Shown here is a 46-nucleotide RNA sequence from Prosthecobacter gellanilyticus, a member of the family "Acido-Lenti-1 RNA".

[Rfam]
Nucleotides: 046
Base pairs, nucleotide, nucleotide: 002019003018004017005016006015007014008013033045034044035043036042037041
Number, partner (000 for none) and nucleotide at each position: 001000g002019c003018u004017g005016g006015g007014g008013u009000u010000g011000a012000a013008a014007c015006c016005c017004c018003a019002g020000g021000c022000u023000a024000u025000g026000a027000u028000g029000g030000g031000a032000c033045g034044c035043g036042c037041c038000u039000u040000u041037g042036g043035c044034g045033c046000u